Rfam assigns this 75-nucleotide RNA from Pipistrellus kuhlii to the family "mir-9223 microRNA precursor family". Its family is annotated with RISC complex and miRNA-mediated post-transcriptional gene silencing in the Gene Ontology.
RNA sequence: GGCAUUUCUUGAGUGAUGCAUUCCAUAAUUGGGCUCCCUACUCUCUGGUUUUGGGUGAGUGACCCAAGAAUUGCA
Numbered sequence: 001g002g003c004a005u006u007u008c009u010u011g012a013g014u015g016a017u018g019c020a021u022u023c024c025a026u027a028a029u030u031g032g033g034c035u036c037c038c039u040a041c042u043c044u045c046u047g048g049u050u051u052u053g054g055g056u057g058a059g060u061g062a063c064c065c066a067a068g069a070a071u072u073g074c075a
Base pairs, nucleotide, nucleotide: 002074003073006070007069008068009067010066011065013063014062016060017059019057020056021055022054023053025052027050028049029048030047031046032045033044